[Rfam]
RNA sequence: GUUCAAGAGUCGCGGCCCAGGGACUGGCCGGCCGCGCGGCAACCCGACAUCGACCGGGUGCCCCCAGAUCAAGAACGGGCUCACCGGCACAGGUCGUGAGCAAGAUUCGAUA
Numbered sequence: 001g002u003u004c005a006a007g008a009g010u011c012g013c014g015g016c017c018c019a020g021g022g023a024c025u026g027g028c029c030g031g032c033c034g035c036g037c038g039g040c041a042a043c044c045c046g047a048c049a050u051c052g053a054c055c056g057g058g059u060g061c062c063c064c065c066a067g068a069u070c071a072a073g074a075a076c077g078g079g080c081u082c083a084c085c086g087g088c089a090c091a092g093g094u095c096g097u098g099a100g101c102a103a104g105a106u107u108c109g110a111u112a
Stems, first nucleotide, its partner, number of pairs: 001076004009037001011036006020029002038062003043058003048052001079101006086095003
Dot-bracket structure: ((((....(.((((((...((......)).)))))))(((..(((..(...)...))).)))..........))))..((((((.(((....)))))))))...........

The family of this 112-nucleotide sequence from Kocuria soli is "SAM (S-adenosyl methionine) riboswitch aptamer". NCBI's taxonomy places the organism under Bacteria, Bacillati, Actinomycetota, Micrococcales, Kocuria. A reference for the family is Weinberg et al. (2008), "The aptamer core of SAM-IV riboswitches mimics the ligand-binding site of SAM-I riboswitches", RNA. Its family is annotated with regulation of gene expression and S-adenosylmethionine metabolic process in the Gene Ontology. A search with the family's covariance model found it, with a score of 67 bits.